[Rfam]
RNA: Trypanosomatid snoRNA TB9Cs1H2
Organism: Erithacus rubecula
RNA sequence: CCUGGAGUAAUCCAGGGUCCCCAGGCACUGCUCCACCUGCCCAUGCCUUAGGAGGUGGAGGACCCCUCUGGCAGCACCAGAGAGAA
Number, nucleotide and partner (000 for none) at each position: 001c000002c000003u079004g078005g077006a000007g075008u074009a000010a000011u000012c000013c000014a000015g066016g065017g064018u000019c000020c000021c000022c000023a000024g000025g000026c000027a000028c000029u000030g000031c000032u000033c000034c000035a000036c000037c000038u000039g000040c000041c000042c000043a000044u000045g000046c000047c000048u000049u000050a000051g000052g000053a000054g000055g000056u000057g000058g000059a000060g000061g000062a000063c000064c017065c016066c015067u000068c000069u000070g000071g000072c000073a000074g008075c007076a000077c005078c004079a003080g000081a000082g000083a000084g000085a000086a000